[Rfam]
RNA sequence: GGCAGAGGGAGACCGGCUUCCGUGUCCCGGCCGCGAGAAGGGACAUGAGGAAAGUCCCCCCACCAGUCGGGCAGGUGACCGGACGCAAGUCCGGGGCGGGAGACCGCCGGCUCUGGAACAGAAACGCGACCCCUCUCCCCGACCGAUGAGGCGUGCGAACCCCGCGCAAAAGGCAUCCGCCGACGAAGCAACGGGGAGUUAACCCGCCGAGGGCGCGGGACCCAGAAGGGUCCCGAUUUGGCGAACGGGCGUUGCGAGGUGCGACAGCACCUCGAAGCCGCGGCGCGUAGCGCCGCGCUGUCCGUGAGCACCGAGGUCCAACGGACCUCGCAGGCUGCGUAGCAGCCUACAGACGGGAGAGAACGGCUGGAACGGCGAACCCUCACCGGUGCAAGCCCGGCCCGACAAGGUAGCCCGACGGCUGGGCCGGGUGCGUAGCCGAAUGCCGGCGAACAGAAGGGGGCUUACUCCCCUCAGCC
Numbered sequence: 001g002g003c004a005g006a007g008g009g010a011g012a013c014c015g016g017c018u019u020c021c022g023u024g025u026c027c028c029g030g031c032c033g034c035g036a037g038a039a040g041g042g043a044c045a046u047g048a049g050g051a052a053a054g055u056c057c058c059c060c061c062a063c064c065a066g067u068c069g070g071g072c073a074g075g076u077g078a079c080c081g082g083a084c085g086c087a088a089g090u091c092c093g094g095g096g097c098g099g100g101a102g103a104c105c106g107c108c109g110g111c112u113c114u115g116g117a118a119c120a121g122a123a124a125c126g127c128g129a130c131c132c133c134u135c136u137c138c139c140c141g142a143c144c145g146a147u148g149a150g151g152c153g154u155g156c157g158a159a160c161c162c163c164g165c166g167c168a169a170a171a172g173g174c175a176u177c178c179g180c181c182g183a184c185g186a187a188g189c190a191a192c193g194g195g196g197a198g199u200u201a202a203c204c205c206g207c208c209g210a211g212g213g214c215g216c217g218g219g220a221c222c223c224a225g226a227a228g229g230g231u232c233c234c235g236a237u238u239u240g241g242c243g244a245a246c247g248g249g250c251g252u253u254g255c256g257a258g259g260u261g262c263g264a265c266a267g268c269a270c271c272u273c274g275a276a277g278c279c280g281c282g283g284c285g286c287g288u289a290g291c292g293c294c295g296c297g298c299u300g301u302c303c304g305u306g307a308g309c310a311c312c313g314a315g316g317u318c319c320a321a322c323g324g325a326c327c328u329c330g331c332a333g334g335c336u337g338c339g340u341a342g343c344a345g346c347c348u349a350c351a352g353a354c355g356g357g358a359g360a361g362a363a364c365g366g367c368u369g370g371a372a373c374g375g376c377g378a379a380c381c382c383u384c385a386c387c388g389g390u391g392c393a394a395g396c397c398c399g400g401c402c403c404g405a406c407a408a409g410g411u412a413g414c415c416c417g418a419c420g421g422c423u424g425g426g427c428c429g430g431g432u433g434c435g436u437a438g439c440c441g442a443a444u445g446c447c448g449g450c451g452a453a454c455a456g457a458a459g460g461g462g463g464c465u466u467a468c469u470c471c472c473c474u475c476a477g478c479c
Stems, first nucleotide, its partner, number of pairs: 001479003005475005010469002013449005021047008052466003056463005061391004070416002074387005079094005095108005109382002114378001116376001130366002133361007151346002395432009
Dot-bracket structure: (((.(((((((.(((((...((((((((...........))))))))....[[[.[[[[[((((.....[[..((((((((((......)))))(((((....)))))((...(.(.............((.(((((((...........((................................................................................................................................................................................................))........)))))))...)).........).)..)))))))))))...(((((((((...........]].......)))))))))............))))).........]]]]]]]].)).))))).)))
RNA: Archaeal RNase P
Organism: Halovenus carboxidivorans